[Rfam]
RNA sequence: GUACGUCUUCAGGGCGGGGUGGAAGUCCCCACCGGCGGUAGGGUCGCAAGACCGAGCCCGCGAGCGCCCGCACCGUGUGCGGGGUCAGCAGAUCCGGUCGAAUGCCGGAGCCGACGGUCACAGUCCGGAUGCAAGAAGACGCAA
Dot-bracket structure: ...(((((((......(((.......))).[[((((((.................[[))))..((......................))...(((((.......)))))]])).(((.....]]))).......)))))))...
Source information
The record is a 144-nucleotide RNA from Plasticicumulans acidivorans, which matches "FMN riboswitch aptamer (RFN element)" in Rfam. The family's consensus secondary structure is taken from published work. Lineage of the source: Bacteria > Pseudomonadati > Pseudomonadota > Candidatus Competibacteraceae > Plasticicumulans. Its family is annotated with FMN binding in the Gene Ontology. About the family: The RFN element is a highly conserved domain that is found frequently in the 5'-untranslated regions of prokaryotic mRNAs that encode for flavin mononucleotide (FMN) biosynthesis and transport proteins.